[Rfam]
RNA sequence: CUCUACCCCCGCGUCAGAUGCCGCAGCCUUAUGGGGCGGCGGUCAGUACAAGGGUAUAAAGGGGUUCGUUUCCUUGCCGGGGAUUAUGGCAAAAAACAAAAAAGGCCACGGAAGCCGCCAGUAAUCGAAAGGUGAAAACCGCUAAACGUGG
Numbered sequence: 001c002u003c004u005a006c007c008c009c010c011g012c013g014u015c016a017g018a019u020g021c022c023g024c025a026g027c028c029u030u031a032u033g034g035g036g037c038g039g040c041g042g043u044c045a046g047u048a049c050a051a052g053g054g055u056a057u058a059a060a061g062g063g064g065u066u067c068g069u070u071u072c073c074u075u076g077c078c079g080g081g082g083a084u085u086a087u088g089g090c091a092a093a094a095a096a097c098a099a100a101a102a103a104g105g106c107c108a109c110g111g112a113a114g115c116c117g118c119c120a121g122u123a124a125u126c127g128a129a130a131g132g133u134g135a136a137a138a139c140c141g142c143u144a145a146a147c148g149u150g151g
Base pairs, nucleotide, nucleotide: 004056005055006054007053008052013049014048020043021042022041023040024039026037027036028035076090077089078088079087106151107150108149109148110147113143114142115141117139124133125132